[Rfam]
RNA sequence: UGGAGAAACAUCAUUGAGUGCAGCGUUGAUGAAGUCCUAAAUAGUAAAUAGCAACUACCCCUCGUGUUUCUCAGGUAGAUGCUUAAAUGGUUUUAUUGACGCUGCACUCAAUCAUGUUUUUU
Numbered sequence: 001u002g003g004a005g006a007a008a009c010a011u012c013a014u015u016g017a018g019u020g021c022a023g024c025g026u027u028g029a030u031g032a033a034g035u036c037c038u039a040a041a042u043a044g045u046a047a048a049u050a051g052c053a054a055c056u057a058c059c060c061c062u063c064g065u066g067u068u069u070c071u072c073a074g075g076u077a078g079a080u081g082c083u084u085a086a087a088u089g090g091u092u093u094u095a096u097u098g099a100c101g102c103u104g105c106a107c108u109c110a111a112u113c114a115u116g117u118u119u120u121u122u
Stems, first nucleotide, its partner, number of pairs: 006119006013112016030095007
The record is a 122-nucleotide RNA sequence from Glycine max, which matches "MIR397 microRNA precursor family" in Rfam.
Its family is annotated with miRNA-mediated post-transcriptional gene silencing and RISC complex in the Gene Ontology.